[Rfam]
RNA sequence: CUUAUCGUGAGUUAAGGGCUGAAGAAAGCGUGUAUCAAAAUCUUCGCUCAACGAACAAAAAUCGGAUACCAAGGCUAUGUAGGUGGAUAAGGCUCCACAACAAGUAAAAGUUCUAAAGGAUGUGCGUAAUCCUAUAGAAGAAAUUAGGCGAGUAAAAGAGGAAAGAUAUAGUU
Numbered sequence: 001c002u003u004a005u006c007g008u009g010a011g012u013u014a015a016g017g018g019c020u021g022a023a024g025a026a027a028g029c030g031u032g033u034a035u036c037a038a039a040a041u042c043u044u045c046g047c048u049c050a051a052c053g054a055a056c057a058a059a060a061a062u063c064g065g066a067u068a069c070c071a072a073g074g075c076u077a078u079g080u081a082g083g084u085g086g087a088u089a090a091g092g093c094u095c096c097a098c099a100a101c102a103a104g105u106a107a108a109a110g111u112u113c114u115a116a117a118g119g120a121u122g123u124g125c126g127u128a129a130u131c132c133u134a135u136a137g138a139a140g141a142a143a144u145u146a147g148g149c150g151a152g153u154a155a156a157a158g159a160g161g162a163a164a165g166a167u168a169u170a171g172u173u
Stems, first nucleotide, its partner, number of pairs: 001016004006011001028173001031170002035166002041159004046153004062148002065145003076138001078136006085113004092105003